[Rfam]
RNA sequence: CUUUAUAUUUCUUUGGUGAUCUAACUUAUGAUUAACUUUAUAAGUCAUAAAGCUAGAUUCACCAAAGAAAUAUGUG
Numbered sequence: 001c002u003u004u005a006u007a008u009u010u011c012u013u014u015g016g017u018g019a020u021c022u023a024a025c026u027u028a029u030g031a032u033u034a035a036c037u038u039u040a041u042a043a044g045u046c047a048u049a050a051a052g053c054u055a056g057a058u059u060c061a062c063c064a065a066a067g068a069a070a071u072a073u074g075u076g
Stems, first nucleotide, its partner, number of pairs: 001076001003074001008069003012065002015062001018059006025052002027049006
RNA: mir-9/mir-79 microRNA precursor family